[Rfam]
RNA sequence: CGGACCGGAGUACCGAAUUAGUCCAGGCAGGGGCGGAGGACCCAUUUCCGGCAGUAGAACUGCCUUGGGGUGAAGCCUUCCGGAGAUCGCCGGCAUUGCCUGCAUAGCUGCAGGCCGAUGCUCCGGCUUUUCCGGAGGCCGAGUUUCUCUACUCGAAUCCGACAGCUAACUUCGCAGGCGUUCCAUGAGAGGGAAA
Numbered sequence: 001c002g003g004a005c006c007g008g009a010g011u012a013c014c015g016a017a018u019u020a021g022u023c024c025a026g027g028c029a030g031g032g033g034c035g036g037a038g039g040a041c042c043c044a045u046u047u048c049c050g051g052c053a054g055u056a057g058a059a060c061u062g063c064c065u066u067g068g069g070g071u072g073a074a075g076c077c078u079u080c081c082g083g084a085g086a087u088c089g090c091c092g093g094c095a096u097u098g099c100c101u102g103c104a105u106a107g108c109u110g111c112a113g114g115c116c117g118a119u120g121c122u123c124c125g126g127c128u129u130u131u132c133c134g135g136a137g138g139c140c141g142a143g144u145u146u147c148u149c150u151a152c153u154c155g156a157a158u159c160c161g162a163c164a165g166c167u168a169a170c171u172u173c174g175c176a177g178g179c180g181u182u183c184c185a186u187g188a189g190a191g192g193g194a195a196a
Base pairs, nucleotide, nucleotide: 001177005032006031033175034174035173036172037171038170043067044066068160069159070158076138077137078136079135141154142153143152144151

The family of this 196-nucleotide RNA from Arthrobacter yangruifuii is "c-di-AMP riboswitch aptamer (ydaO/yuaA leader)". The match comes from Rfam's covariance-model search (59 bits). Rfam links the family to the GO terms regulation of gene expression and cyclic-di-AMP binding. The source organism's lineage runs through Bacteria, Bacillati, Actinomycetes, Micrococcaceae and Arthrobacter.